[Rfam]
RNA: Guanidine-I riboswitch aptamer
RNA sequence: CCAAUAGACAGCUAGGGUUCCGGUCGGCCACAAGCCGACGCCUGGUCCGAGAGCGGUCGACCUUCUUGCAAGGUUACACGGCGGGACAAAAGCCCGGGAGGA
Numbered sequence: 001c002c003a004a005u006a007g008a009c010a011g012c013u014a015g016g017g018u019u020c021c022g023g024u025c026g027g028c029c030a031c032a033a034g035c036c037g038a039c040g041c042c043u044g045g046u047c048c049g050a051g052a053g054c055g056g057u058c059g060a061c062c063u064u065c066u067u068g069c070a071a072g073g074u075u076a077c078a079c080g081g082c083g084g085g086a087c088a089a090a091a092g093c094c095c096g097g098g099a100g101g102a
Stems, first nucleotide, its partner, number of pairs: 007058003011054002015048002020045002022042001023039006059075006077097001079100001083095003